[Rfam]
RNA: RAGATH-18 RNA
Organism: Bacillus subtilis
RNA sequence: CCUGUGGAGUAUCAUAUCAAAUGUGAGUAGCUUCGGCAAAAGCAGAUACAAAGAAGCAGGAA
Numbered sequence: 001c002c003u004g005u006g007g008a009g010u011a012u013c014a015u016a017u018c019a020a021a022u023g024u025g026a027g028u029a030g031c032u033u034c035g036g037c038a039a040a041a042g043c044a045g046a047u048a049c050a051a052a053g054a055a056g057c058a059g060g061a062a
Stems, first nucleotide, its partner, number of pairs: 001060005009049005022044003030037002